RNA: mir-965 microRNA precursor family
RNA sequence: CGUUUAAGGGGCAAUGUUGUACGUUGUAUGUAUCAUUGAAACCAUAAGCGUAUAGCUUUUCCCCUUUGAUG
Numbered sequence: 001c002g003u004u005u006a007a008g009g010g011g012c013a014a015u016g017u018u019g020u021a022c023g024u025u026g027u028a029u030g031u032a033u034c035a036u037u038g039a040a041a042c043c044a045u046a047a048g049c050g051u052a053u054a055g056c057u058u059u060u061c062c063c064c065u066u067u068g069a070u071g
Base pairs, nucleotide, nucleotide: 003069004068006066007065009063010062011061013059014058017055018054019053020052021051024048025047027046028045029044030043